[Rfam]
RNA sequence: AUGUAGUGUGACAUGCCCGUUUGGGAUUUACUCUGAUGUGAAUUAUUUAUUACUAAAUUGAUUUUGGGUAACGGGGUGUUACAAAA
Numbered sequence: 001a002u003g004u005a006g007u008g009u010g011a012c013a014u015g016c017c018c019g020u021u022u023g024g025g026a027u028u029u030a031c032u033c034u035g036a037u038g039u040g041a042a043u044u045a046u047u048u049a050u051u052a053c054u055a056a057a058u059u060g061a062u063u064u065u066g067g068g069u070a071a072c073g074g075g076g077u078g079u080u081a082c083a084a085a086a
Base pairs, nucleotide, nucleotide: 004086007083008082009081010080011079012078013077014076016075017074018073019072020071021070
Dot-bracket structure: ...(..((((((((.((((((................................................))))))))))))))..)
A member of the RNA family "MIR2617 microRNA precursor family" from Medicago truncatula, 86 nucleotides long. The base pairs follow the family's consensus structure, which was predicted with RNAalifold. Lineage of the source: Eukaryota > Mesangiospermae > Pentapetalae > Fabaceae > Medicago.